[Rfam]
RNA sequence: AUGAUUGCAGGAGAUGGCAUUCCUCCUUUAACCGCCGUUUCGGCUGAUGAUGUCUACGUUAAC
Numbered sequence: 001a002u003g004a005u006u007g008c009a010g011g012a013g014a015u016g017g018c019a020u021u022c023c024u025c026c027u028u029u030a031a032c033c034g035c036c037g038u039u040u041c042g043g044c045u046g047a048u049g050a051u052g053u054c055u056a057c058g059u060u061a062a063c
Stems, first nucleotide, its partner, number of pairs: 010026004016054006034044003
Background: Rfam assigns this 63-nucleotide RNA sequence from Sodalis ligni to the family "Fluoride riboswitch aptamer (crcB RNA motif)". The match comes from Rfam's covariance-model search (60 bits). Lineage of the source: Bacteria > Gammaproteobacteria > Enterobacterales > Bruguierivoracaceae > Sodalis.